The family of this 86-nucleotide RNA sequence from Terrisporobacter othiniensis is "c-di-GMP-I riboswitch aptamer". It scores 76 bits against the family's covariance model. Taxonomically the source falls in Terrisporobacter (Bacteria, Bacillati, Bacillota, Clostridia). Gene Ontology term of the family: cyclic-di-GMP binding. The family's consensus secondary structure is taken from published work.
RNA sequence: GCUAAAUAUUGGCAAAUCUAGAGAAAUCUAGAGACGCAAAGCUAUAGGGGCUAAGGUUAAUCACACUAUGCCAGCCAGUUGCCGAA
Numbered sequence: 001g002c003u004a005a006a007u008a009u010u011g012g013c014a015a016a017u018c019u020a021g022a023g024a025a026a027u028c029u030a031g032a033g034a035c036g037c038a039a040a041g042c043u044a045u046a047g048g049g050g051c052u053a054a055g056g057u058u059a060a061u062c063a064c065a066c067u068a069u070g071c072c073a074g075c076c077a078g079u080u081g082c083c084g085a086a
Base pairs, nucleotide, nucleotide: 012037013036017032018031019030020029021028022027040080041079042078043077047076048075049072050071051070056066057065